[Rfam]
RNA sequence: CAUUCUUGUGAAGAAUUACUAUAUCCAAAUUAGAAGUAGUGGACUGAUAUCUAGUUGAUGAUAGAUAUUUCUGAGGGAUA
Numbered sequence: 001c002a003u004u005c006u007u008g009u010g011a012a013g014a015a016u017u018a019c020u021a022u023a024u025c026c027a028a029a030u031u032a033g034a035a036g037u038a039g040u041g042g043a044c045u046g047a048u049a050u051c052u053a054g055u056u057g058a059u060g061a062u063a064g065a066u067a068u069u070u071c072u073g074a075g076g077g078a079u080a
Base pairs, nucleotide, nucleotide: 002079003078004077005076006075
Small nucleolar RNA R21: an 80-nucleotide RNA from Carnegiea gigantea.
The family's RNA type in Rfam is C/D-box small nucleolar RNA.
The family has 6 seed sequences and 472 matches in Rfam 15.1.
On this family, see Barneche et al., J Mol Biol 2001: "Identification of 66 box C/D snoRNAs in Arabidopsis thaliana: extensive gene duplications generated multiple isoforms predicting new ribosomal RNA 2'-O-methylation sites".
NCBI's taxonomy places the organism under Eukaryota, Streptophyta, Embryophyta, Echinocereeae, Carnegiea.